[Rfam]
RNA sequence: AUUAAAAACCGAAUACAAACUCGUAUAAAUGUGGUGAUAUGGUCCACAAGUCUCUACCGGUCUGCCGUAAAUUGACCGACUACGGGUGUUGAAGACAACUUU
Numbered sequence: 001a002u003u004a005a006a007a008a009c010c011g012a013a014u015a016c017a018a019a020c021u022c023g024u025a026u027a028a029a030u031g032u033g034g035u036g037a038u039a040u041g042g043u044c045c046a047c048a049a050g051u052c053u054c055u056a057c058c059g060g061u062c063u064g065c066c067g068u069a070a071a072u073u074g075a076c077c078g079a080c081u082a083c084g085g086g087u088g089u090u091g092a093a094g095a096c097a098a099c100u101u102u
Base pairs, nucleotide, nucleotide: 019087020086021085022084023083024082025081030048031047032046033045034044058078059077060076061075062074064072